[Rfam]
RNA sequence: GGGGGUGAAUGGUCUCGACUGCGGUCGGGUGACCAGGGGAAGCGAGCCGAGGAAGCCGACGAUGAGCUCGUUAACCACGCGUCGGAAAACACACAAGCGCCGACAAGAGUCAGCGCGCGUACGCCCUCGCUGCCUGACAGCGAGUGUGACGCUGUCAGCCCGGGUUCGGUCAUCGACCCGGUGUCUGGCAUCAGCUAGAUGACUCACCGUGCGUGCCGGUCGCGGGCGUGCACGGGACACCUCACAGCGACUGGGCCUGUCAUCUCGACGUGUUCGCGCGAUCGGGAGGGCCGAGCAGAGGCAGAGCGGACUGCGCUCGGAGAAGCCCUGGUGAUGCGUCGCAGGACGCGGGUUCGAUUCCCGCCACCUCCACCC
Numbered sequence: 001g002g003g004g005g006u007g008a009a010u011g012g013u014c015u016c017g018a019c020u021g022c023g024g025u026c027g028g029g030u031g032a033c034c035a036g037g038g039g040a041a042g043c044g045a046g047c048c049g050a051g052g053a054a055g056c057c058g059a060c061g062a063u064g065a066g067c068u069c070g071u072u073a074a075c076c077a078c079g080c081g082u083c084g085g086a087a088a089a090c091a092c093a094c095a096a097g098c099g100c101c102g103a104c105a106a107g108a109g110u111c112a113g114c115g116c117g118c119g120u121a122c123g124c125c126c127u128c129g130c131u132g133c134c135u136g137a138c139a140g141c142g143a144g145u146g147u148g149a150c151g152c153u154g155u156c157a158g159c160c161c162g163g164g165u166u167c168g169g170u171c172a173u174c175g176a177c178c179c180g181g182u183g184u185c186u187g188g189c190a191u192c193a194g195c196u197a198g199a200u201g202a203c204u205c206a207c208c209g210u211g212c213g214u215g216c217c218g219g220u221c222g223c224g225g226g227c228g229u230g231c232a233c234g235g236g237a238c239a240c241c242u243c244a245c246a247g248c249g250a251c252u253g254g255g256c257c258u259g260u261c262a263u264c265u266c267g268a269c270g271u272g273u274u275c276g277c278g279c280g281a282u283c284g285g286g287a288g289g290g291c292c293g294a295g296c297a298g299a300g301g302c303a304g305a306g307c308g309g310a311c312u313g314c315g316c317u318c319g320g321a322g323a324a325g326c327c328c329u330g331g332u333g334a335u336g337c338g339u340c341g342c343a344g345g346a347c348g349c350g351g352g353u354u355c356g357a358u359u360c361c362c363g364c365c366a367c368c369u370c371c372a373c374c375c
Base pairs, nucleotide, nucleotide: 001371002370003369004368005367006366007365019344020343021342022341023340024339025338028335032332033331034330035329036328037327038326043319044318045317046316047315048070049069050068051067056085057084058083059082060081061080126144127143128142129141130140131139132138153190154189155188156187157186158185160181161180162179163178164177165176166175168203170201173198207235208234209233210232211231212230213229214228215227218252219251220250221249222248223247254292255291256290257289258288260286261285265281266280267279272311273310274309275308348364349363350362351361352360
Record summary
The record is a 375-nucleotide RNA sequence from Geodermatophilus dictyosporus, which matches "transfer-messenger RNA" in Rfam. The organism belongs to Geodermatophilus, within Bacteria. For this family Rfam cites "Phylogenetic analysis of tmRNA secondary structure" (Williams and Bartel, RNA, 1996). Gene Ontology term of the family: RNA catabolic process. The match comes from Rfam's covariance-model search (138 bits). From the family's description: Bacterial tmRNA, also known as 10Sa RNA or SsrA, is named for its dual tRNA and mRNA-like properties. Its role is to liberate the mRNA from a stalled ribosome. To accomplish this part of the tmRNA is used as a reading frame that ends in a translation stop signal. The broken mRNA is replaced in the ribosome by the tmRNA and translation of the tmRNA leads to addition of a proteolysis tag to the incomplete protein enabling recognition by a protease. Recently a number of permuted tmRNA genes have been found encoded in two parts. tmRNAs have been identified in eubacteria and some chloroplasts but are absent from archaeal and eukaryote nuclear genomes.